The record is a 125-nucleotide RNA sequence from Halobacillus karajensis, which matches "Ribosomal protein L20 leader" in Rfam.
The organism belongs to Halobacillus, within Bacteria.
RNA sequence: AGAGACAAGUAGGAGCACCCGCUUCUCACCUGAUCGACGCAAAAAGCAGUUGGCAGGUCACUUAUUCCUUUGAUAUUUUAGGAGACGUGUGGGUGCAUUAUGUGUACCGACACUUUUUUUAUUGC
Numbered sequence: 001a002g003a004g005a006c007a008a009g010u011a012g013g014a015g016c017a018c019c020c021g022c023u024u025c026u027c028a029c030c031u032g033a034u035c036g037a038c039g040c041a042a043a044a045a046g047c048a049g050u051u052g053g054c055a056g057g058u059c060a061c062u063u064a065u066u067c068c069u070u071u072g073a074u075a076u077u078u079u080a081g082g083a084g085a086c087g088u089g090u091g092g093g094u095g096c097a098u099u100a101u102g103u104g105u106a107c108c109g110a111c112a113c114u115u116u117u118u119u120u121a122u123u124g125c
Base pairs, nucleotide, nucleotide: 011026012025013024014023015022016021028058029057030056036051037050038049039047040046088112089111090110092108093107094106095105096104097103
Dot-bracket structure: ..........((((((....)))))).(((.....(((((.....)).)))....))).............................(((.((((((.....)))))).))).............